The record is a 101-nucleotide RNA sequence from Quercus lobata, which matches "Small nucleolar RNA Z102/R77" in Rfam. The family's RNA type in Rfam is C/D-box small nucleolar RNA. A search with the family's covariance model found it, with a score of 50 bits. Rfam 15.1 lists 1,346 matches to the family in 224 species. Pairs were carried over by alignment from the consensus structure, which was predicted with PFOLD.

RNA sequence: GAACAAGAUGAUGAGGGUCAGGGAUAUGUUUCCCUAUUGGUUUGAUUGCCAAUAUGAUGGCAUCAAUCAUGUACUAGGCUACUAGCUCUAGCUGUUUGUUC
Numbered sequence: 001g002a003a004c005a006a007g008a009u010g011a012u013g014a015g016g017g018u019c020a021g022g023g024a025u026a027u028g029u030u031u032c033c034c035u036a037u038u039g040g041u042u043u044g045a046u047u048g049c050c051a052a053u054a055u056g057a058u059g060g061c062a063u064c065a066a067u068c069a070u071g072u073a074c075u076a077g078g079c080u081a082c083u084a085g086c087u088c089u090a091g092c093u094g095u096u097u098g099u100u101c
Stems, first nucleotide, its partner, number of pairs: 002100004044064001047062004
The family is grouped with related families in Rfam's "SNORD44 clan".